The family of this 80-nucleotide RNA sequence is "nadA riboswitch".
It is annotated as a small RNA.
The sequence is in the family's curated seed alignment.
RNA sequence: GCUUUCAACAUCCCCGUCUCAGAGGCGCGAUCGGCGGUCUCGGCAUCGCCGACUCCAAACGACCUCAUGAGACUGAAGGC
Numbered sequence: 001g002c003u004u005u006c007a008a009c010a011u012c013c014c015c016g017u018c019u020c021a022g023a024g025g026c027g028c029g030a031u032c033g034g035c036g037g038u039c040u041c042g043g044c045a046u047c048g049c050c051g052a053c054u055c056c057a058a059a060c061g062a063c064c065u066c067a068u069g070a071g072a073c074u075g076a077a078g079g080c
Base pairs, nucleotide, nucleotide: 001080002079003078004077005076006075007074016073017072018071019070020069021068022066023065024064025063028061029060